[Rfam]
RNA sequence: AUACUCACAAAGGAGUGCUUUGGCUGAGAUCGCAGAUUUGCGAAAUCCUAAGGACCUGAUCUCGUUAAUACGAGCGUAGGGAUUGUGAAAAGUCAUUUU
Numbered sequence: 001a002u003a004c005u006c007a008c009a010a011a012g013g014a015g016u017g018c019u020u021u022g023g024c025u026g027a028g029a030u031c032g033c034a035g036a037u038u039u040g041c042g043a044a045a046u047c048c049u050a051a052g053g054a055c056c057u058g059a060u061c062u063c064g065u066u067a068a069u070a071c072g073a074g075c076g077u078a079g080g081g082a083u084u085g086u087g088a089a090a091a092g093u094c095a096u097u098u099u
Stems, first nucleotide, its partner, number of pairs: 006087005011049004016043001017024002031042004055080004061074004

TPP riboswitch aptamer (THI element): a 99-nucleotide sequence from Streptococcus urinalis. The base pairs follow the family's consensus structure, which is taken from published work. The match comes from Rfam's covariance-model search (76 bits). The organism belongs to Streptococcus urinalis, within Bacteria.